[Rfam]
RNA sequence: CUCAGAUAUGGUGACAUGGUGCCAAAGACCAUCAUGGGGAAGAUUUUUGGCUCCAUUUGCUCUCUAAGUGGCGUGCUGGUCAUUGCGCUGCCGGUGCCCGUCAUCGUCUCCAAC
Numbered sequence: 001c002u003c004a005g006a007u008a009u010g011g012u013g014a015c016a017u018g019g020u021g022c023c024a025a026a027g028a029c030c031a032u033c034a035u036g037g038g039g040a041a042g043a044u045u046u047u048u049g050g051c052u053c054c055a056u057u058u059g060c061u062c063u064c065u066a067a068g069u070g071g072c073g074u075g076c077u078g079g080u081c082a083u084u085g086c087g088c089u090g091c092c093g094g095u096g097c098c099c100g101u102c103a104u105c106g107u108c109u110c111c112a113a114c
Stems, first nucleotide, its partner, number of pairs: 002113001005110001008107004013102003018097001021095002037077002040074001049063002

Shown here is a 114-nucleotide RNA sequence from Sphaeramia orbicularis, a member of the family "Potassium channel RNA editing signal".
The base pairs follow the family's consensus structure, which is taken from published work.
The organism belongs to Sphaeramia, within Eukaryota.
It scores 88 bits against the family's covariance model.